[Rfam]
RNA sequence: GGUUUAAGUGAUGGUAAUCUUCCACAGAAAAUCAUAUUUAGUGUUGACUAAAAUUAAAGACUACAAUUAUCCGAUCAACU
Numbered sequence: 001g002g003u004u005u006a007a008g009u010g011a012u013g014g015u016a017a018u019c020u021u022c023c024a025c026a027g028a029a030a031a032u033c034a035u036a037u038u039u040a041g042u043g044u045u046g047a048c049u050a051a052a053a054u055u056a057a058a059g060a061c062u063a064c065a066a067u068u069a070u071c072c073g074a075u076c077a078a079c080u
Base pairs, nucleotide, nucleotide: 001080002079003078004077006075

Rfam assigns this 80-nucleotide sequence from Triticum urartu to the family "Small nucleolar RNA Z155".
NCBI's taxonomy places the organism under Eukaryota, Spermatophyta, commelinids, Triticodae, Triticum.
It is annotated as a C/D-box small nucleolar RNA.
The match comes from Rfam's covariance-model search (60 bits).
Pairs were carried over by alignment from the consensus structure.